[Rfam]
RNA sequence: UAAGUCUCCGUCAAGCAGACAAAUGCGAGGCAAGCUCGCUUGCAGGAGCAUUUGGCUAUUUGACGGGACAACAGGUAUGAGCAUGCAGCGCUGCUGUUUUUUGCAGCGUGGAAUGCGAAUACCUGUCAGCGGUAUAGGAGCUGCGGCAGCAGCGAAUACCGCGUGAGACUUA
Numbered sequence: 001u002a003a004g005u006c007u008c009c010g011u012c013a014a015g016c017a018g019a020c021a022a023a024u025g026c027g028a029g030g031c032a033a034g035c036u037c038g039c040u041u042g043c044a045g046g047a048g049c050a051u052u053u054g055g056c057u058a059u060u061u062g063a064c065g066g067g068a069c070a071a072c073a074g075g076u077a078u079g080a081g082c083a084u085g086c087a088g089c090g091c092u093g094c095u096g097u098u099u100u101u102u103g104c105a106g107c108g109u110g111g112a113a114u115g116c117g118a119a120u121a122c123c124u125g126u127c128a129g130c131g132g133u134a135u136a137g138g139a140g141c142u143g144c145g146g147c148a149g150c151a152g153c154g155a156a157u158a159c160c161g162c163g164u165g166a167g168a169c170u171u172a
Stems, first nucleotide, its partner, number of pairs: 001172007008066004014060002017057002020054007030043005071126008081116004088109007129162007140153004
The family of this 172-nucleotide sequence from Oribacterium sp. oral taxon 078 is "Clostridiales-1 RNA". Lineage of the source: Bacteria > Bacillati > Bacillota > Lachnospiraceae > Oribacterium sp. oral taxon 078. The family's RNA type in Rfam is small RNA. A search with the family's covariance model found it, with a score of 93 bits.